Annotation
c-di-GMP-I-GGC riboswitch aptamer: a 79-nucleotide RNA from Rubrobacter tropicus. Clan: c-di-GMP_I riboswitch clan.
RNA sequence: GCGGACAAAGGCAAACCUGCCGCGAGGCAGGGACGCAAAGCCACGGGUCUCGCGAGAGCAGAUAGCCGGGUUGCCGACG
Numbered sequence: 001g002c003g004g005a006c007a008a009a010g011g012c013a014a015a016c017c018u019g020c021c022g023c024g025a026g027g028c029a030g031g032g033a034c035g036c037a038a039a040g041c042c043a044c045g046g047g048u049c050u051c052g053c054g055a056g057a058g059c060a061g062a063u064a065g066c067c068g069g070g071u072u073g074c075c076g077a078c079g
Base pairs, nucleotide, nucleotide: 004075011036012035016031017030018029019028020027021026034065039072040071041070042069044068045067046066047063048062049061